About this RNA: A member of the RNA family "Mammalian CPEB3 ribozyme" from Alligator mississippiensis, 77 nucleotides long.
RNA sequence: AGGUCAAAGUUUGAGGCCAUAGCAAAAGCGCUUACAGUGCAGCCCUGUCAGUUUCUAAUGAAUCUGCAAAUUCUGGU
Numbered sequence: 001a002g003g004u005c006a007a008a009g010u011u012u013g014a015g016g017c018c019a020u021a022g023c024a025a026a027a028g029c030g031c032u033u034a035c036a037g038u039g040c041a042g043c044c045c046u047g048u049c050a051g052u053u054u055c056u057a058a059u060g061a062a063u064c065u066g067c068a069a070a071u072u073c074u075g076g077u
Stems, first nucleotide, its partner, number of pairs: 013045001015044003021077001023075002026072002028040003049066003053062003
Dot-bracket structure: ............(.(((...[.[[.[[(((.......))).))))...(((.(((....))).)))....]].]].]
Pairs were carried over by alignment from the consensus structure, which is taken from published work.